Glycine riboswitch aptamer: an 80-nucleotide RNA sequence from Leucothrix arctica. For this family Rfam cites "A glycine-dependent riboswitch that uses cooperative binding to control gene expression" (Mandal et al., Science, 2004). Rfam describes the family as follows. This family represents the bacterial glycine riboswitch. Glycine riboswitches usually consist of two metabolite-binding aptamers domains with similar structures in tandem. It scores 42 bits against the family's covariance model.
[Rfam]
RNA sequence: CUCUGGAGAACGGUAUUUAAGUAUACCUACCGAAGGGUUUAACUCGCAAAGCGAGGAAUAUCUCAGGUAUCAGGACAGAG
Dot-bracket structure: (((((......((((........)))).(((((..(((....((((.....))))....))))).))).......)))))